RNA: Plant signal recognition particle RNA
RNA sequence: GCCGAGCUGAGUAGCGCCAGCUUGUGACCCAUGUGGGGGCAUCAAGGUGAUGGAAUAUGGCUAAGGCUUAACAGGUUGGUCUUGUGGUUGCACCAUGCUGGCUUGCCCACUCCAAGUUAUGAGUUAACCCACGGGACUUGUGCGAAGGCAUGGGUCUUGUUGGUCUUAGACAGGAGGGUAUAGCGUGAGGCUGGUUUCACAGAGCAGCGAACACUUCCUACUCCUGACAGUGGAGGGAUUACAGGCCGCUGCACCAUCAGCCCACUAAAACCUAGUGAGUCUAGCCCCUUGAACCAUCACUUUU
Numbered sequence: 001g002c003c004g005a006g007c008u009g010a011g012u013a014g015c016g017c018c019a020g021c022u023u024g025u026g027a028c029c030c031a032u033g034u035g036g037g038g039g040c041a042u043c044a045a046g047g048u049g050a051u052g053g054a055a056u057a058u059g060g061c062u063a064a065g066g067c068u069u070a071a072c073a074g075g076u077u078g079g080u081c082u083u084g085u086g087g088u089u090g091c092a093c094c095a096u097g098c099u100g101g102c103u104u105g106c107c108c109a110c111u112c113c114a115a116g117u118u119a120u121g122a123g124u125u126a127a128c129c130c131a132c133g134g135g136a137c138u139u140g141u142g143c144g145a146a147g148g149c150a151u152g153g154g155u156c157u158u159g160u161u162g163g164u165c166u167u168a169g170a171c172a173g174g175a176g177g178g179u180a181u182a183g184c185g186u187g188a189g190g191c192u193g194g195u196u197u198c199a200c201a202g203a204g205c206a207g208c209g210a211a212c213a214c215u216u217c218c219u220a221c222u223c224c225u226g227a228c229a230g231u232g233g234a235g236g237g238a239u240u241a242c243a244g245g246c247c248g249c250u251g252c253a254c255c256a257u258c259a260g261c262c263c264a265c266u267a268a269a270a271c272c273u274a275g276u277g278a279g280u281c282u283a284g285c286c287c288c289u290u291g292a293a294c295c296a297u298c299a300c301u302u303u304u
Stems, first nucleotide, its partner, number of pairs: 001040003004023006028037003044303010056291002059287002061284003065280001068278003073273005078263002081260002084257003089253002099248007107237002110235005116228004121223004127164003131160013172219006184209003191202003